Rfam assigns this 52-nucleotide RNA from Lentivirus humimdef1 to the family "HIV Ribosomal frameshift signal".
RNA sequence: UUUUUUAGGAAAAAUCUGGCCUUCCCACAAGGGGAGGCAAGAGAACUUUCUU
Numbered sequence: 001u002u003u004u005u006u007a008g009g010a011a012a013a014a015u016c017u018g019g020c021c022u023u024c025c026c027a028c029a030a031g032g033g034g035a036g037g038c039a040a041g042a043g044a045a046c047u048u049u050c051u052u
Base pairs, nucleotide, nucleotide: 008052009051011049012048013047015042016041017040019038020037021036022035023034024033025032
Dot-bracket structure: .......((.(((.(((.(((((((......))))))).)))....))).))
The family's RNA type in Rfam is frameshift element. The base pairs follow the family's consensus structure, which is taken from published work. Rfam's curators put it in the seed alignment. The source organism's lineage runs through Viruses, Ortervirales, Retroviridae, Orthoretrovirinae and Lentivirus humimdef1. Rfam's curators write: This family represents the HIV Ribosomal frameshift signal. HIV uses a system called -1 ribosomal frameshifting to produce the required ratio of Gag and Gag-Pol polyproteins. The stem-loop structure of the frameshift signal is thought to impede the ribosome and cause slippage in the 5' direction, this causes the -1 frameshift and translation then continues in the new frame. For this family Rfam cites "The human immunodeficiency virus type 1 ribosomal frameshifting site is an invariant sequence determinant and an important target for antiviral therapy" (Biswas et al., J Virol, 2004). Rfam links the family to the GO term viral translational frameshifting.